The record is a 348-nucleotide RNA sequence from Geotrypetes seraphini, which matches "Nuclear RNase P" in Rfam.

RNA sequence: GUGGAUGGAAGCUCAUCGCCGAGGUCACGUGCUGGGUGCGUUGCGUCACUCCCUGGAGCUUCGGGGAAGGUCUGAGACGAGAGCCACGUGGUUGUCCCUGCAGGAUGUCACGCGAGUCGCGUGAGUGAGUUCCCAGGCACCGAGGGGCCCUCGCGCGGAGGGGAGCGCGCAGGAGAUGCGGGCGCUGGGCGCGAAGGGGCGCAGCAAUUAACCCCUCGACCGGCCCCGCGGAUGCAGCUCCCCCCACAGGGCUUUGGAAAAGACUCACGGCUGGCAGCGCCGAGUCCAAUGGCUGAGGUGAGACACGGCUGCGGUCUCAUAACCCAAUUCAGACUACUCUCCUUCCAC
Numbered sequence: 001g002u003g004g005a006u007g008g009a010a011g012c013u014c015a016u017c018g019c020c021g022a023g024g025u026c027a028c029g030u031g032c033u034g035g036g037u038g039c040g041u042u043g044c045g046u047c048a049c050u051c052c053c054u055g056g057a058g059c060u061u062c063g064g065g066g067a068a069g070g071u072c073u074g075a076g077a078c079g080a081g082a083g084c085c086a087c088g089u090g091g092u093u094g095u096c097c098c099u100g101c102a103g104g105a106u107g108u109c110a111c112g113c114g115a116g117u118c119g120c121g122u123g124a125g126u127g128a129g130u131u132c133c134c135a136g137g138c139a140c141c142g143a144g145g146g147g148c149c150c151u152c153g154c155g156c157g158g159a160g161g162g163g164a165g166c167g168c169g170c171a172g173g174a175g176a177u178g179c180g181g182g183c184g185c186u187g188g189g190c191g192c193g194a195a196g197g198g199g200c201g202c203a204g205c206a207a208u209u210a211a212c213c214c215c216u217c218g219a220c221c222g223g224c225c226c227c228g229c230g231g232a233u234g235c236a237g238c239u240c241c242c243c244c245c246a247c248a249g250g251g252c253u254u255u256g257g258a259a260a261a262g263a264c265u266c267a268c269g270g271c272u273g274g275c276a277g278c279g280c281c282g283a284g285u286c287c288a289a290u291g292g293c294u295g296a297g298g299u300g301a302g303a304c305a306c307g308g309c310u311g312c313g314g315u316c317u318c319a320u321a322a323c324c325c326a327a328u329u330c331a332g333a334c335u336a337c338u339c340u341c342c343u344u345c346c347a348c
Base pairs, nucleotide, nucleotide: 001348002347003346004345007342008341009340012297013296014295015294017292020063021062022061023060024059034051035050036049037048038047039045072332073331074330075329076328082272083271084270085269093107094106095105096104097103108124109123110122111121112120113119125268126267127266128265129264130263131262146253147252148251149250150249151248298320299319300318301317302316303315304314
It scores 184 bits against the family's covariance model. It is annotated as a ribozyme. The source organism's lineage runs through Eukaryota, Metazoa, Vertebrata, Euteleostomi and Geotrypetes.